[Rfam]
RNA sequence: ACUUUUCUUAGCACACAUUUUAGCUACCAUGUCAGUAUUAAUAAACUAGCACUAAUACAUUAGUGCUUCUAUGUACUUCGUGCAUUACUGUUAGUCCCCAAGAAUAAUAUAUU
Numbered sequence: 001a002c003u004u005u006u007c008u009u010a011g012c013a014c015a016c017a018u019u020u021u022a023g024c025u026a027c028c029a030u031g032u033c034a035g036u037a038u039u040a041a042u043a044a045a046c047u048a049g050c051a052c053u054a055a056u057a058c059a060u061u062a063g064u065g066c067u068u069c070u071a072u073g074u075a076c077u078u079c080g081u082g083c084a085u086u087a088c089u090g091u092u093a094g095u096c097c098c099c100a101a102g103a104a105u106a107a108u109a110u111a112u113u
Base pairs, nucleotide, nucleotide: 005104006103007102008101009100011096015091016090017089021048022047023046049066050065053062054061055060071085072084073083074082075081
This 113-nucleotide RNA sequence from Pongo abelii belongs to the Rfam family "Mitochondrial DNA control region secondary structure A". The base pairs follow the family's consensus structure, which is taken from published work. Rfam 15.1 lists 795 matches to the family in 62 species. The family's RNA type in Rfam is antisense RNA. Lineage of the source: Eukaryota > Teleostomi > Hominoidea > Hominidae > Pongo.